RNA: ASdes TB sRNA
Organism: Gordonia crocea
RNA sequence: GCCUCGACGGGGUCGACCGCGCGGGUCACGACGAGGUAGUCGCGCAGCACGAUCGCGUGCCGGUUGUC
Numbered sequence: 001g002c003c004u005c006g007a008c009g010g011g012g013u014c015g016a017c018c019g020c021g022c023g024g025g026u027c028a029c030g031a032c033g034a035g036g037u038a039g040u041c042g043c044g045c046a047g048c049a050c051g052a053u054c055g056c057g058u059g060c061c062g063g064u065u066g067u068c
Base pairs, nucleotide, nucleotide: 004063005062006061008059009058012029013028015027016026017025018024035056038053040052041051042050044048